[Rfam]
RNA: Group II catalytic intron D1-D4-2
RNA sequence: GGGGGACGGCCCCCGAUGUCGGCCUGCAGGGGCAGACAUCAAACCACCGUAAGCUGCGUCGGUUAAGAGCCGGGGUAGUGAGCGUUACGGAAAAGGCAUGACGAGGAUCAUGUCAGGU
Numbered sequence: 001g002g003g004g005g006a007c008g009g010c011c012c013c014c015g016a017u018g019u020c021g022g023c024c025u026g027c028a029g030g031g032g033c034a035g036a037c038a039u040c041a042a043a044c045c046a047c048c049g050u051a052a053g054c055u056g057c058g059u060c061g062g063u064u065a066a067g068a069g070c071c072g073g074g075g076u077a078g079u080g081a082g083c084g085u086u087a088c089g090g091a092a093a094a095g096g097c098a099u100g101a102c103g104a105g106g107a108u109c110a111u112g113u114c115a116g117g118u
Stems, first nucleotide, its partner, number of pairs: 001014005015040006022033004045117001047090006053079002056076002060072004095114006